Rfam assigns this 102-nucleotide RNA sequence from Herbidospora galbida to the family "Glycine riboswitch aptamer". The match comes from Rfam's covariance-model search (42 bits).
[Rfam]
RNA sequence: CGACUCUGAAAAGCAGGUCCGCCGUCCAGGCGGCGCCUCACCGAAGGGGAAAACCGGCCGACGGCGUCCGGUGAAGCUCUCAGGUUCCAUGACAGAGGGGGA
Numbered sequence: 001c002g003a004c005u006c007u008g009a010a011a012a013g014c015a016g017g018u019c020c021g022c023c024g025u026c027c028a029g030g031c032g033g034c035g036c037c038u039c040a041c042c043g044a045a046g047g048g049g050a051a052a053a054c055c056g057g058c059c060g061a062c063g064g065c066g067u068c069c070g071g072u073g074a075a076g077c078u079c080u081c082a083g084g085u086u087c088c089a090u091g092a093c094a095g096a097g098g099g100g101g102a
Stems, first nucleotide, its partner, number of pairs: 001100001004097005015038004040085003043081002047079003053072005
This family represents the bacterial glycine riboswitch.